[Rfam]
A member of the RNA family "Glycine riboswitch aptamer" from Hydrogenophaga sp. A37, 107 nucleotides long.
The organism belongs to Hydrogenophaga, within Bacteria.
RNA sequence: GCGCACAACUCUGAAGAGUGGCCGGGAUUCGUCGUCCCGGCCCACCGCAGGAGCAAGCCCGCCACCACGGUGGGUGAAUCUCUCAGGUCACAAACAGAGGGGGUCAU
Number, nucleotide and partner (000 for none) at each position: 001g000002c000003g000004c000005a000006c102007a000008a000009c099010u098011c097012u096013g095014a000015a000016g000017a000018g000019u000020g042021g041022c040023c039024g038025g037026g036027a000028u000029u000030c000031g000032u000033c000034g000035u000036c026037c025038c024039g023040g022041c021042c020043c000044a088045c087046c086047g084048c000049a000050g000051g082052a081053g080054c000055a000056a000057g075058c074059c073060c072061g071062c070063c000064a000065c000066c000067a000068c000069g000070g062071u061072g060073g059074g058075u057076g000077a000078a000079u000080c053081u052082c051083u000084c047085a000086g046087g045088u044089c000090a000091c000092a000093a000094a000095c013096a012097g011098a010099g009100g000101g000102g006103g000104u000105c000106a000107u000